The family of this 68-nucleotide RNA sequence is "int-alpA RNA". Rfam's curators put it in the seed alignment. It is annotated as a small RNA. About the family: Acidobacteria (1 example), Planctomycetes (1 example), Proteobacteria.
[Rfam]
RNA sequence: GCCGCGUCUAGGGUAGCCCCCGAAAAGCCGGUUCCCUGCCGGCCGGACGCGGCCUCCGAUUCGCAGGG
Number, nucleotide and partner (000 for none) at each position: 001g053002c052003c051004g050005c049006g048007u047008c046009u000010a000011g021012g020013g019014u000015a000016g000017c000018c000019c013020c012021c011022g000023a000024a000025a000026a000027g043028c042029c041030g040031g039032u000033u000034c068035c067036c066037u065038g064039c031040c030041g029042g028043c027044c000045g000046g008047a007048c006049g005050c004051g003052g002053c001054c000055u000056c000057c000058g000059a000060u000061u000062c000063g000064c038065a037066g036067g035068g034